[Rfam]
RNA sequence: UGGACAGAUUAUUGUAUUCGACUGUAUUCACGGCAUGAAAUAGGGGAUUAUACUGUUUUUAAAAUGGAAAGUGAAUCAAUUAACAUAAUAGACUCCU
Numbered sequence: 001u002g003g004a005c006a007g008a009u010u011a012u013u014g015u016a017u018u019c020g021a022c023u024g025u026a027u028u029c030a031c032g033g034c035a036u037g038a039a040a041u042a043g044g045g046g047a048u049u050a051u052a053c054u055g056u057u058u059u060u061a062a063a064a065u066g067g068a069a070a071g072u073g074a075a076u077c078a079a080u081u082a083a084c085a086u087a088a089u090a091g092a093c094u095c096c097u
Base pairs, nucleotide, nucleotide: 002096003095004094009091010090011089012088013087014086015085017083018082020081021080023078024077026076027075028074029073030072031071034066035065036064037059038058039057040056041055042054043053

This 97-nucleotide RNA sequence from Nicotiana tabacum belongs to the Rfam family "MIR6152 microRNA precursor family". Taxonomically the source falls in Nicotiana (Eukaryota, Mesangiospermae, Gunneridae, Nicotianoideae). Pairs were carried over by alignment from the consensus structure, which was predicted with RNAalifold. The sequence is in the family's curated seed alignment. Rfam links the family to the GO terms RISC complex and miRNA-mediated post-transcriptional gene silencing.